[Rfam]
RNA sequence: CGGCACUUGAUACUGAGCUGUGUCCUAGCCUUGUGCUGCGGGCAUGUGCUGUGUGCUGGUAACGAGGCUGAAGAAGUGCAGUAGUAAAGCAAAACCCUGAGUCUUUAAGCCCAGGGUGUCAGGACACACUGAGUUAUGAAUCAGUGGCAUAACU
Numbered sequence: 001c002g003g004c005a006c007u008u009g010a011u012a013c014u015g016a017g018c019u020g021u022g023u024c025c026u027a028g029c030c031u032u033g034u035g036c037u038g039c040g041g042g043c044a045u046g047u048g049c050u051g052u053g054u055g056c057u058g059g060u061a062a063c064g065a066g067g068c069u070g071a072a073g074a075a076g077u078g079c080a081g082u083a084g085u086a087a088a089g090c091a092a093a094a095c096c097c098u099g100a101g102u103c104u105u106u107a108a109g110c111c112c113a114g115g116g117u118g119u120c121a122g123g124a125c126a127c128a129c130u131g132a133g134u135u136a137u138g139a140a141u142c143a144g145u146g147g148c149a150u151a152a153c154u
Base pairs, nucleotide, nucleotide: 003079004078005077006076007075008074016069017068018067019066021064022063023062024053026051027050028049029048030046032044033043034042036040095147096146116127117126118125119124128145129144130143131142132141134139
Dot-bracket structure: ..((((((.......((((.((((.(((((.(((.(...).))).).)))).)........))).))))....))))))...............((...................((((....))))(((((.(....).))))))).......

A member of the RNA family "Small Cajal body specific RNA 1" from Cnephaeus nilssonii, 154 nucleotides long. Its family is annotated with RNA processing, nucleolus and Cajal body in the Gene Ontology. The family's consensus secondary structure was predicted with RNAalifold. Rfam describes the family as follows. scaRNAs are a specific class of small nuclear RNAs which localise to the Cajal bodies and guide the modification of RNA polymerase II transcribed spliceosomal RNAs U1, U2, U4, U5 and U12. ACA35 belong to the H/ACA box class of guide RNAs as it has the predicted hairpin-hinge-hairpin-tail structure, conserved H/ACA-box motifs and is found associated with GAR1.